This 122-nucleotide RNA from Aquilegia coerulea belongs to the Rfam family "Small nucleolar RNA SNORD14".
For this family Rfam cites "An essential domain in Saccharomyces cerevisiae U14 snoRNA is absent in vertebrates, but conserved in other yeasts" (Samarsky et al., Nucleic Acids Res, 1996).
The base pairs follow the family's consensus structure, which was predicted with PFOLD.
The source organism's lineage runs through Eukaryota, Viridiplantae, Streptophyta, Ranunculales and Aquilegia.
About the family: U14 small nucleolar RNA (U14 snoRNA) is required for early cleavages of eukaryotic precursor rRNAs. In yeasts, this molecule possess a stem-loop region (known as the Y-domain) which is essential for function.
RNA sequence: AGUUGAUGAUGAUAUGAUGAAAGGCUAGUUUCUCAGAAUUCGCAGUGGCCGUCCAAGAGCUUUCGCCUUUGCCAGGCUUGAGAGCUAAUGCUGCUUCAAUCCUUCCUUGGAUGUCUGAGACU
Numbered sequence: 001a002g003u004u005g006a007u008g009a010u011g012a013u014a015u016g017a018u019g020a021a022a023g024g025c026u027a028g029u030u031u032c033u034c035a036g037a038a039u040u041c042g043c044a045g046u047g048g049c050c051g052u053c054c055a056a057g058a059g060c061u062u063u064c065g066c067c068u069u070u071g072c073c074a075g076g077c078u079u080g081a082g083a084g085c086u087a088a089u090g091c092u093g094c095u096u097c098a099a100u101c102c103u104u105c106c107u108u109g110g111a112u113g114u115c116u117g118a119g120a121c122u
Stems, first nucleotide, its partner, number of pairs: 001122004059085006